[Rfam]
RNA sequence: AGAAUAUUGAGAAGACCUGUCCUUAGUACGAGAGGACCGGGAUGGACAAACCUCUGAUGUACCAGUUGUCACGCCAGUGGCACAGCUGGGUAGUCACGUUUGGAAUAGAUAAUCGCUGAAAGCAUCUAAGCGAGAAACUAACUUCAAGAUAAGUAUUCUUUAAGAUACCUUUGAGACUAGGAGGUUGAUAGGUUGGAGGUGUAAGUACAGCAAUGUAUUUAGCUGACCAAUACUAAUUAUCAAAG
Numbered sequence: 001a002g003a004a005u006a007u008u009g010a011g012a013a014g015a016c017c018u019g020u021c022c023u024u025a026g027u028a029c030g031a032g033a034g035g036a037c038c039g040g041g042a043u044g045g046a047c048a049a050a051c052c053u054c055u056g057a058u059g060u061a062c063c064a065g066u067u068g069u070c071a072c073g074c075c076a077g078u079g080g081c082a083c084a085g086c087u088g089g090g091u092a093g094u095c096a097c098g099u100u101u102g103g104a105a106u107a108g109a110u111a112a113u114c115g116c117u118g119a120a121a122g123c124a125u126c127u128a129a130g131c132g133a134g135a136a137a138c139u140a141a142c143u144u145c146a147a148g149a150u151a152a153g154u155a156u157u158c159u160u161u162a163a164g165a166u167a168c169c170u171u172u173g174a175g176a177c178u179a180g181g182a183g184g185u186u187g188a189u190a191g192g193u194u195g196g197a198g199g200u201g202u203a204a205g206u207a208c209a210g211c212a213a214u215g216u217a218u219u220u221a222g223c224u225g226a227c228c229a230a231u232a233c234u235a236a237u238u239a240u241c242a243a244a245g
Stems, first nucleotide, its partner, number of pairs: 001159008011145004017045007047102005055096003062089005067082006106140003113133005164241004168184005189235003192231005198224002205218005
Dot-bracket structure: ((((((((..((((..(((((((...............))))))).(((((...(((....(((((((((((....))))))..)))))....))).)))))...(((....(((((...........)))))....))).))))......))))))))....(((((((((.......)))))....((((((((.((.....(((((....)))))....))..))))).)))..))))....
This 245-nucleotide part of an RNA from Fusobacterium animalis belongs to the Rfam family "Bacterial large subunit ribosomal RNA". Pairs were carried over by alignment from the consensus structure, which is taken from published work. The organism belongs to Fusobacterium animalis, within Bacteria.